[Rfam]
RNA: Small nucleolar RNA SNORD83
Organism: Buceros rhinoceros
RNA sequence: GCCAAAUGAUUUCAAUUGUAUGGCAUUAGCACUCAGUGCAAAGAUGAUCCUCAUCUAUCACCCCAGGCUGAUGGCU
Dot-bracket structure: ((((........................((((...))))................................)))).